The family of this 122-nucleotide sequence from Scleromatobacter humisilvae is "Burkholderia RNA 11". NCBI's taxonomy places the organism under Bacteria, Pseudomonadota, Betaproteobacteria, Sphaerotilaceae, Scleromatobacter. Co-purified with Hfq, expression confirmed by Northern blot. Predicted target marZ. Overlaps coding sequence.

RNA sequence: GCAACCUGCGGCUGGCGCGCACCGACAUCGUCGUGUUCCGAUCGCUGCUGGGCAUCUCGUGGAUGUGGUUCUUCGGCGCAACCUUCCUGUCGCAGUUCCCGUCCUUCGCCAAGGACGUGCUG
Numbered sequence: 001g002c003a004a005c006c007u008g009c010g011g012c013u014g015g016c017g018c019g020c021a022c023c024g025a026c027a028u029c030g031u032c033g034u035g036u037u038c039c040g041a042u043c044g045c046u047g048c049u050g051g052g053c054a055u056c057u058c059g060u061g062g063a064u065g066u067g068g069u070u071c072u073u074c075g076g077c078g079c080a081a082c083c084u085u086c087c088u089g090u091c092g093c094a095g096u097u098c099c100c101g102u103c104c105u106u107c108g109c110c111a112a113g114g115a116c117g118u119g120c121u122g
Stems, first nucleotide, its partner, number of pairs: 010049003014045001017042001018040002021037001023035001025034002051121005057115002060112001062110001063105001065103001067099002071095002074092005